[Rfam]
RNA sequence: UCAGUUACAAUCUAGCAUCUGGGGCACACAUAACGAGUAUCUAAUUACUCUCUAACAAGCCUCGGGAAGGUCUGAGAAUUGGCCAAAACUCUAUUUGUUGUUGUAACAACAUGCAGCCAACGAAAGACGUCUGUGUGUAACGGAGUUUUAUUUCCUAGCAGGAAACUUGUGUAAUCACAAGGCGAAAGUACCAGAAAUACUGCAACUUGGUCGUUGCCGUCAUUGUGACCGCCGCCUUGUUGUAUUGAAACCUUUCGUGGCCAGCAAUUUUAGUGCGAUGUGCUUGCUGCAGACGCACACCUUGUGUGGGCGUGCAGAACUCAAUUCAGACUAAUCUGUGACUGA
Dot-bracket structure: ((((..(((..(.(((((..(((((.........(((((......)))))........)))))........[[[[[....((((..................................................................(((((.....)))))((((((....))))))(((((((.............(((((................................)))))........))))))))))).................))))).)(((((.....................))))).......]]]]].......)))..))))
Numbered sequence: 001u002c003a004g005u006u007a008c009a010a011u012c013u014a015g016c017a018u019c020u021g022g023g024g025c026a027c028a029c030a031u032a033a034c035g036a037g038u039a040u041c042u043a044a045u046u047a048c049u050c051u052c053u054a055a056c057a058a059g060c061c062u063c064g065g066g067a068a069g070g071u072c073u074g075a076g077a078a079u080u081g082g083c084c085a086a087a088a089c090u091c092u093a094u095u096u097g098u099u100g101u102u103g104u105a106a107c108a109a110c111a112u113g114c115a116g117c118c119a120a121c122g123a124a125a126g127a128c129g130u131c132u133g134u135g136u137g138u139a140a141c142g143g144a145g146u147u148u149u150a151u152u153u154c155c156u157a158g159c160a161g162g163a164a165a166c167u168u169g170u171g172u173a174a175u176c177a178c179a180a181g182g183c184g185a186a187a188g189u190a191c192c193a194g195a196a197a198u199a200c201u202g203c204a205a206c207u208u209g210g211u212c213g214u215u216g217c218c219g220u221c222a223u224u225g226u227g228a229c230c231g232c233c234g235c236c237u238u239g240u241u242g243u244a245u246u247g248a249a250a251c252c253u254u255u256c257g258u259g260g261c262c263a264g265c266a267a268u269u270u271u272a273g274u275g276c277g278a279u280g281u282g283c284u285u286g287c288u289g290c291a292g293a294c295g296c297a298c299a300c301c302u303u304g305u306g307u308g309g310g311c312g313u314g315c316a317g318a319a320c321u322c323a324a325u326u327c328a329g330a331c332u333a334a335u336c337u338g339u340g341a342c343u344g345a
Stems, first nucleotide, its partner, number of pairs: 001345004007339003012286001014284005021063005035050005072329005081262004151165005166181006182258007202243005287317005

The record is a 345-nucleotide RNA sequence from Drosophila busckii, which matches "Nuclear RNase P" in Rfam. The source organism's lineage runs through Eukaryota, Allotriocarida, Muscomorpha, Eremoneura and Dorsilopha. By type it is a ribozyme. From the family's description: Ribonuclease P (RNase P) is a ubiquitous endoribonuclease, found in archaea, bacteria and eukarya as well as chloroplasts and mitochondria.